[Rfam]
RNA sequence: AUGUUAUAAAGAAAGCUCGAGGGAAUAGACCCGAUGAAAGCUUAGCAACCCUUUGCAAACGAAGAAGGUGCUACAUUCUAUCCCAUUAGGGAAAAGAUAACAA
Numbered sequence: 001a002u003g004u005u006a007u008a009a010a011g012a013a014a015g016c017u018c019g020a021g022g023g024a025a026u027a028g029a030c031c032c033g034a035u036g037a038a039a040g041c042u043u044a045g046c047a048a049c050c051c052u053u054u055g056c057a058a059a060c061g062a063a064g065a066a067g068g069u070g071c072u073a074c075a076u077u078c079u080a081u082c083c084c085a086u087u088a089g090g091g092a093a094a095a096g097a098u099a100a101c102a103a
Stems, first nucleotide, its partner, number of pairs: 002102006013043005021032003026080004044072004049068002051064004076095001081092004
A member of the RNA family "SAM riboswitch aptamer (S box leader)" from Flavobacterium fluvii, 103 nucleotides long. The base pairs follow the family's consensus structure, which is taken from published work. A search with the family's covariance model found it, with a score of 71 bits. The family has 457 seed sequences and 9,625 matches in Rfam 15.1.